permuted transfer-messenger RNA: a 214-nucleotide RNA sequence from Aurantiacibacter spongiae. About the family: Bacterial tmRNA, also known as 10Sa RNA or SsrA, is named for its dual tRNA and mRNA-like properties.
RNA sequence: GGCGAUAAAUUGCGGUGUGCAAUAGGCACAGCGGACCCGGGGGCAGUACCCGGCGGCUCCACCAGAACAGGCAAUUCCCCGCCAGUUCUGACGGGGCCGAACCAGGAUCGACGUGUGUUGAAAGGCACUGUUUUCGCCCGGGUUGAGAAACCCCGUAAAAAGCUCAAAACACACAAGUGCCAACGAUAACGAAGCACUCGCCAUCGCUGCGUAA
Number, nucleotide and partner (000 for none) at each position: 001g138002g137003c136004g135005a134006u000007a000008a000009a000010u000011u000012g000013c000014g000015g128016u127017g126018u125019g000020c000021a000022a000023u000024a000025g000026g000027c117028a116029c115030a000031g114032c113033g112034g000035a000036c000037c053038c052039g051040g050041g049042g000043g000044c000045a000046g000047u000048a000049c041050c040051c039052g038053g037054c099055g098056g097057c096058u095059c094060c093061a000062c000063c000064a000065g000066a000067a000068c000069a000070g000071g000072c000073a000074a000075u000076u000077c000078c000079c000080c000081g000082c000083c000084a000085g000086u000087u000088c000089u000090g000091a000092c000093g060094g059095g058096g057097c056098c055099g054100a000101a000102c000103c000104a000105g000106g000107a000108u000109c000110g000111a000112c033113g032114u031115g029116u028117g027118u000119u000120g000121a000122a000123a000124g000125g018126c017127a016128c015129u000130g000131u000132u000133u000134u005135c004136g003137c002138c001139c155140g154141g153142g152143u000144u000145g000146a000147g000148a000149a000150a000151c000152c142153c141154c140155g139156u000157a000158a000159a000160a000161a000162g000163c000164u000165c000166a000167a000168a000169a000170c000171a000172c000173a000174c000175a000176a000177g000178u000179g000180c000181c000182a000183a000184c000185g000186a000187u000188a000189a000190c000191g000192a000193a000194g000195c000196a000197c000198u000199c000200g000201c000202c000203a000204u000205c000206g000207c000208u000209g000210c000211g000212u000213a000214a000

Notes
It scores 143 bits against the family's covariance model. It is annotated as a non-coding RNA gene.